[Rfam]
RNA sequence: CUUGAGCGAGCCGACCCACAGCGGGCGCCCGGCCGGGCGGUCCUGGCCGUAGGCGGUGAUGAGCGCCUGCGCCUC
Numbered sequence: 001c002u003u004g005a006g007c008g009a010g011c012c013g014a015c016c017c018a019c020a021g022c023g024g025g026c027g028c029c030c031g032g033c034c035g036g037g038c039g040g041u042c043c044u045g046g047c048c049g050u051a052g053g054c055g056g057u058g059a060u061g062a063g064c065g066c067c068u069g070c071g072c073c074u075c
Base pairs, nucleotide, nucleotide: 015025016024017023032070033069038065039064044059047056048055049054